[Rfam]
RNA sequence: CAUGCUAGCAAGGCCAUCAACCAUAUCAACUCCGUAUGGAAGGACUUGCUAGAAGACA
Numbered sequence: 001c002a003u004g005c006u007a008g009c010a011a012g013g014c015c016a017u018c019a020a021c022c023a024u025a026u027c028a029a030c031u032c033c034g035u036a037u038g039g040a041a042g043g044a045c046u047u048g049c050u051a052g053a054a055g056a057c058a
Base pairs, nucleotide, nucleotide: 005052006051007050008049009048010047011046012045014043015042021039022038023037024036025035026034

Source information:
A member of the RNA family "Hepatitis C virus stem-loop SL8001 RNA" from Orthohepacivirus hominis, 58 nucleotides long. Even though Hepatitis C virus (HCV) SL8001 is not required for overall replication, conformational changes in this motif tune the initial rate of replication. The family's consensus secondary structure was predicted with RNAfold. The family's RNA type in Rfam is cis-regulatory element. The source organism's lineage runs through Viruses, Kitrinoviricota, Orthohepacivirus, Orthohepacivirus hominis and Hepatitis C virus genotype 6. Rfam's curators put it in the seed alignment.